[Rfam]
RNA sequence: UUGCUGUGAUGACUUCCAGUGGGUUUCGCUUGUUUCUGAGGGCCAGUGAUGCCUCUCUCUUGGCUGUCUGAGCAA
Number, nucleotide and partner (000 for none) at each position: 001u075002u074003g073004c072005u000006g000007u000008g000009a000010u000011g000012a000013c000014u000015u000016c000017c000018a000019g000020u000021g000022g000023g000024u000025u000026u000027c000028g000029c000030u000031u000032g000033u000034u000035u000036c000037u000038g000039a000040g000041g000042g000043c000044c000045a000046g000047u000048g000049a000050u000051g000052c000053c000054u000055c000056u000057c000058u000059c000060u000061u000062g000063g000064c000065u000066g000067u000068c000069u000070g000071a000072g004073c003074a002075a001
Description:
The record is a 75-nucleotide RNA sequence from Chinchilla lanigera, which matches "Small nucleolar RNA SNORD53/SNORD92" in Rfam. Taxonomically the source falls in Chinchilla (Eukaryota, Gnathostomata, Boreoeutheria, Euarchontoglires). Its Rfam clan is "SNORD52 clan". Rfam 15.1 lists 2,250 matches to the family in 671 species. It scores 80 bits against the family's covariance model. Gene Ontology terms of the family: RNA processing and nucleolus. For this family Rfam cites "Site-specific ribose methylation of preribosomal RNA: a novel function for small nucleolar RNAs" (Kiss-Laszlo et al., Cell, 1996).